DUF805b RNA: a 36-nucleotide RNA sequence from Chryseobacterium gleum.
RNA sequence: AUGGCGGCAUCUGAAAAGCCAUUAAAAGAGUAAGAA
Numbered sequence: 001a002u003g004g005c006g007g008c009a010u011c012u013g014a015a016a017a018g019c020c021a022u023u024a025a026a027a028g029a030g031u032a033a034g035a036a
Stems, first nucleotide, its partner, number of pairs: 002021004010035003
Rfam's curators put it in the seed alignment. The family is grouped with related families in Rfam's "DUF805 clan".